[Rfam]
RNA sequence: GCCUUCGUAGCUCAGUGGAGAGAGCGCGGCGUUCCGGGCGCCGAGGUCGCUGGUUCGAGUCCAGCCGGGGGCG
Numbered sequence: 001g002c003c004u005u006c007g008u009a010g011c012u013c014a015g016u017g018g019a020g021a022g023a024g025c026g027c028g029g030c031g032u033u034c035c036g037g038g039c040g041c042c043g044a045g046g047u048c049g050c051u052g053g054u055u056c057g058a059g060u061c062c063a064g065c066c067g068g069g070g071g072c073g
Stems, first nucleotide, its partner, number of pairs: 001072007010025004027043005049065005
Shown here is a 73-nucleotide RNA from Actinoplanes sp. SE50/110, a member of the family "tRNA". It scores 59 bits against the family's covariance model. By type it is a transfer RNA. The base pairs follow the family's consensus structure, which is taken from published work.